[Rfam]
RNA: Small nucleolar RNA SNORA43
RNA sequence: GCUGUCCUAGAUCUGUCGCAUUACAGGCAUAGUGCAGUUACUCAUCUGUGCCUGGGACUUCAGAGCAAAGGGUGAGGGGCUAUUUCUACACUCAGUGUUCAGAAGCCAGUGAGCACUAAUAAUGGUUUAUAAUCUGACAUUU
Numbered sequence: 001g002c003u004g005u006c007c008u009a010g011a012u013c014u015g016u017c018g019c020a021u022u023a024c025a026g027g028c029a030u031a032g033u034g035c036a037g038u039u040a041c042u043c044a045u046c047u048g049u050g051c052c053u054g055g056g057a058c059u060u061c062a063g064a065g066c067a068a069a070g071g072g073u074g075a076g077g078g079g080c081u082a083u084u085u086c087u088a089c090a091c092u093c094a095g096u097g098u099u100c101a102g103a104a105g106c107c108a109g110u111g112a113g114c115a116c117u118a119a120u121a122a123u124g125g126u127u128u129a130u131a132a133u134c135u136g137a138c139a140u141u142u
Stems, first nucleotide, its partner, number of pairs: 003067003007063002010060001024054005078134002086125003092119001096115006